RNA: c-di-GMP-I riboswitch aptamer
RNA sequence: AUACGUUAAUGGCAAACUUGUCGAAAGGCAAGGACGCAAAGCUAAAGGGUCUAACGUUCGCGAGAACAAUGACAGCCUGGCCGCCGAA
Numbered sequence: 001a002u003a004c005g006u007u008a009a010u011g012g013c014a015a016a017c018u019u020g021u022c023g024a025a026a027g028g029c030a031a032g033g034a035c036g037c038a039a040a041g042c043u044a045a046a047g048g049g050u051c052u053a054a055c056g057u058u059c060g061c062g063a064g065a066a067c068a069a070u071g072a073c074a075g076c077c078u079g080g081c082c083g084c085c086g087a088a
Stems, first nucleotide, its partner, number of pairs: 012037002017032006041081003046078003049073003056067004